[Rfam]
RNA sequence: AUCCUUGUGCACGGGCAACAUCAGUAGCAGUGAAGGCUAGCCUGAGCUCUGAUUUUUGCUGGUUGAAAACUACAACUACAUUGACGCUCCCGAUCUGCAUUUGCGGGUCGGGGAAUUUUUGGAAAUUGCUGCGA
Dot-bracket structure: ...................(((((.(((.....(((....)))..))))))))..................................(((((((((((....))))))))))).....................
Numbered sequence: 001a002u003c004c005u006u007g008u009g010c011a012c013g014g015g016c017a018a019c020a021u022c023a024g025u026a027g028c029a030g031u032g033a034a035g036g037c038u039a040g041c042c043u044g045a046g047c048u049c050u051g052a053u054u055u056u057u058g059c060u061g062g063u064u065g066a067a068a069a070c071u072a073c074a075a076c077u078a079c080a081u082u083g084a085c086g087c088u089c090c091c092g093a094u095c096u097g098c099a100u101u102u103g104c105g106g107g108u109c110g111g112g113g114a115a116u117u118u119u120u121g122g123a124a125a126u127u128g129c130u131g132c133g134a
Stems, first nucleotide, its partner, number of pairs: 020053005026048003034043003088113011
Rfam assigns this 134-nucleotide sequence from Tuber melanosporum to the family "U4 spliceosomal RNA". U4 small nuclear RNA (U4 snRNA) is a component of the major U2-dependent spliceosome. The family's consensus secondary structure is taken from published work. Lineage of the source: Eukaryota > Fungi > Pezizomycotina > Pezizales > Tuber. By type it is a spliceosomal small nuclear RNA. A search with the family's covariance model found it, with a score of 101 bits.